[Rfam]
RNA sequence: UGGGAAGAUGCCGAAAAUCCUUAACAGAGUAGGCA
Numbered sequence: 001u002g003g004g005a006a007g008a009u010g011c012c013g014a015a016a017a018u019c020c021u022u023a024a025c026a027g028a029g030u031a032g033g034c035a
Stems, first nucleotide, its partner, number of pairs: 002021004010034003

Rfam assigns this 35-nucleotide RNA sequence to the family "DUF805b RNA".